Burkholderia RNA 7 (anti-hemB): an 82-nucleotide RNA sequence from Chromobacterium violaceum. Pairs were carried over by alignment from the consensus structure, which is taken from published work.
RNA sequence: CCUCCCGCUUGGCUCCCUGAGCGGGGCCUGAAUCGUUGCUAUCCAGGCUUUGCCCCGGCUUUCUCGGCCGGGGCUUUUUAUU
Numbered sequence: 001c002c003u004c005c006c007g008c009u010u011g012g013c014u015c016c017c018u019g020a021g022c023g024g025g026g027c028c029u030g031a032a033u034c035g036u037u038g039c040u041a042u043c044c045a046g047g048c049u050u051u052g053c054c055c056c057g058g059c060u061u062u063c064u065c066g067g068c069c070g071g072g073g074c075u076u077u078u079u080a081u082u
Base pairs, nucleotide, nucleotide: 004025005024006023007022008021009020026048027047028046029045030044032042053073054072055071056070057069058068059067060066
Dot-bracket structure: ...((((((..........))))))(((((.(.........).)))))....((((((((.....)))))))).........
Rfam classes the family as a small RNA.
A reference for the family is Weinberg et al. (2007), "Identification of 22 candidate structured RNAs in bacteria using the CMfinder comparative genomics pipeline", Nucleic Acids Res.
Rfam describes the family as follows. This RNA motif was identified by computational search in b-proteobacteria Burkholderia. Co-purified with Hfq, expression confirmed by Northern blot.
The sequence is in the family's curated seed alignment.